[Rfam]
RNA sequence: GCCGAGCUUUGUAACGGAAGCUUGUGACCUGAGUGGGGGCAUUGAGAUUAUGGGACAUGGGUUUCGCUCCUUGAGUCGGAUCUCACAUGGCUUAGUAAUGGCUUGCCCGUUCCAAGCCAAGAGUUGUGCUAUGGGAUCUCUGUGAAAACUGUGGGUCUCUUGGCUCUUAGAGAGAAGGGUACAGCGUGAGGCUGGUUUCACAGAGCAGCGAAGACCUUCCUCUCUUGGCAGUGGGAGGAUAACAGGCUUGAUCCACUGUGAUCCAACAUGUCUCACCGAGCUGACCUUCACUGAACCAUCAUCUUU
Numbered sequence: 001g002c003c004g005a006g007c008u009u010u011g012u013a014a015c016g017g018a019a020g021c022u023u024g025u026g027a028c029c030u031g032a033g034u035g036g037g038g039g040c041a042u043u044g045a046g047a048u049u050a051u052g053g054g055a056c057a058u059g060g061g062u063u064u065c066g067c068u069c070c071u072u073g074a075g076u077c078g079g080a081u082c083u084c085a086c087a088u089g090g091c092u093u094a095g096u097a098a099u100g101g102c103u104u105g106c107c108c109g110u111u112c113c114a115a116g117c118c119a120a121g122a123g124u125u126g127u128g129c130u131a132u133g134g135g136a137u138c139u140c141u142g143u144g145a146a147a148a149c150u151g152u153g154g155g156u157c158u159c160u161u162g163g164c165u166c167u168u169a170g171a172g173a174g175a176a177g178g179g180u181a182c183a184g185c186g187u188g189a190g191g192c193u194g195g196u197u198u199c200a201c202a203g204a205g206c207a208g209c210g211a212a213g214a215c216c217u218u219c220c221u222c223u224c225u226u227g228g229c230a231g232u233g234g235g236a237g238g239a240u241a242a243c244a245g246g247c248u249u250g251a252u253c254c255a256c257u258g259u260g261a262u263c264c265a266a267c268a269u270g271u272c273u274c275a276c277c278g279a280g281c282u283g284a285c286c287u288u289c290a291c292u293g294a295a296c297c298a299u300c301a302u303c304u305u306u
Stems, first nucleotide, its partner, number of pairs: 001040003004023007028037003044305005050299004056293002058290003061286001063284002066281001068279002072275004077270001078264005084258002088255003093251001100248006107238002110236005116229008126166001128164004133159007140151001142149002167172001174219005185210003192203003